The record is a 73-nucleotide sequence from Cebus imitator, which matches "Small nucleolar RNA SNORD77" in Rfam.
Rfam classes the family as a C/D-box small nucleolar RNA.
U77 belongs to the C/D family of snoRNAs.
Gene Ontology terms of the family: nucleolus and RNA processing.
Rfam 15.1 lists 396 matches to the family in 167 species.
[Rfam]
RNA sequence: AUACUAUGAUGGUUGCAUAGUUCAACAGAUUGAAUUUAUAAAGAGAUUUACAACUAUAAUAUCAAAUGUAGUU
Numbered sequence: 001a002u003a004c005u006a007u008g009a010u011g012g013u014u015g016c017a018u019a020g021u022u023c024a025a026c027a028g029a030u031u032g033a034a035u036u037u038a039u040a041a042a043g044a045g046a047u048u049u050a051c052a053a054c055u056a057u058a059a060u061a062u063c064a065a066a067u068g069u070a071g072u073u
Base pairs, nucleotide, nucleotide: 002070003069004068006039007038008037009035010034013028014027015026044060047059048058